Shown here is a 109-nucleotide sequence from Fictibacillus macauensis, a member of the family "SAM riboswitch aptamer (S box leader)". It scores 86 bits against the family's covariance model.
[Rfam]
RNA sequence: CACUUAUCACGAGUGGUGGAGGGACUGGCCCGAUGAAACCCGGCAACCGUUAAGCUUUUGCUUAAAAUGGUGCCAAUUCCUGCAAAGCAAUGUCUUUGGGAGAUGAGUU
Numbered sequence: 001c002a003c004u005u006a007u008c009a010c011g012a013g014u015g016g017u018g019g020a021g022g023g024a025c026u027g028g029c030c031c032g033a034u035g036a037a038a039c040c041c042g043g044c045a046a047c048c049g050u051u052a053a054g055c056u057u058u059u060g061c062u063u064a065a066a067a068u069g070g071u072g073c074c075a076a077u078u079c080c081u082g083c084a085a086a087g088c089a090a091u092g093u094c095u096u097u098g099g100g101a102g103a104u105g106a107g108u109u
Base pairs, nucleotide, nucleotide: 002108003107004106005105006104007103008102013041015040016039017038021031022030023029025082027080028079042074043073044072045071047070048069050065051064052063078101083098084097085096086095087094

The organism belongs to Fictibacillus macauensis, within Bacteria.